The record is a 95-nucleotide RNA sequence from Phtheirospermum japonicum, which matches "mir-283 microRNA precursor family" in Rfam. The family's consensus secondary structure was predicted with WAR. Clan: mir-216 clan. The match comes from Rfam's covariance-model search (52 bits).
[Rfam]
RNA sequence: UGAACAUUCCGAGGGAAACAAUAUCCCUCGGAAAUUCCGAGGAAUAAAUGAAAAAGUCCCUCGGAAUUCCGAGGGAUAUUGUUUCCCUCGGAAUG
Numbered sequence: 001u002g003a004a005c006a007u008u009c010c011g012a013g014g015g016a017a018a019c020a021a022u023a024u025c026c027c028u029c030g031g032a033a034a035u036u037c038c039g040a041g042g043a044a045u046a047a048a049u050g051a052a053a054a055a056g057u058c059c060c061u062c063g064g065a066a067u068u069c070c071g072a073g074g075g076a077u078a079u080u081g082u083u084u085c086c087c088u089c090g091g092a093a094u095g
Stems, first nucleotide, its partner, number of pairs: 013087006021079011034067008